mir-399 microRNA precursor family: a 93-nucleotide RNA sequence from Spinacia oleracea.
RNA sequence: UGCUGAAUUACAGUGCGAUUCUCCUUUGGCAUGCGGAGAAUGCACAUGCAUGAUUUCUGCCAUGCCAAAGGAGACUUGCCCUGCCAUUCAUCA
Numbered sequence: 001u002g003c004u005g006a007a008u009u010a011c012a013g014u015g016c017g018a019u020u021c022u023c024c025u026u027u028g029g030c031a032u033g034c035g036g037a038g039a040a041u042g043c044a045c046a047u048g049c050a051u052g053a054u055u056u057c058u059g060c061c062a063u064g065c066c067a068a069a070g071g072a073g074a075c076u077u078g079c080c081c082u083g084c085c086a087u088u089c090a091u092c093a
Stems, first nucleotide, its partner, number of pairs: 005089004011083003015079004021073004027067007

Notes:
It scores 64 bits against the family's covariance model.